[Rfam]
The family of this 161-nucleotide RNA from Pieris macdunnoughi is "U11 spliceosomal RNA".
RNA sequence: AAAAAGGUUUUUUUCGGGGGGGGAAAAUUUCCCCCCCCCCCCCCCCCAAAAAAAAAAAAAAAAAAAAAUAAAAAAAUUUUUUUUUUUUUUUUGGGGGGGGGGGGUUUAAAAAAAAAUUUUUUGUGGGGGGGGGGGGGGGGUUUUUUUUUCCCCCCCCCCCC
Number, nucleotide and partner (000 for none) at each position: 001a000002a000003a000004a000005a000006g000007g000008u112009u111010u110011u109012u108013u000014u000015c000016g000017g000018g032019g031020g030021g029022g028023g000024a000025a000026a000027a000028u022029u021030u020031c019032c018033c000034c000035c104036c103037c102038c101039c100040c099041c098042c097043c096044c095045c094046c093047c000048a000049a000050a000051a000052a000053a000054a000055a000056a000057a000058a000059a000060a000061a000062a000063a000064a000065a000066a000067a000068a000069u000070a000071a000072a000073a000074a000075a000076a000077u000078u000079u000080u000081u000082u000083u000084u000085u000086u000087u000088u000089u000090u000091u000092u000093g046094g045095g044096g043097g042098g041099g040100g039101g038102g037103g036104g035105u000106u000107u000108a012109a011110a010111a009112a008113a000114a000115a000116a000117u000118u000119u000120u000121u000122u000123g000124u000125g000126g000127g000128g000129g000130g159131g158132g157133g156134g155135g154136g153137g152138g151139g000140g150141u000142u000143u000144u000145u000146u000147u000148u000149u000150c140151c138152c137153c136154c135155c134156c133157c132158c131159c130160c000161c000
It scores 48 bits against the family's covariance model.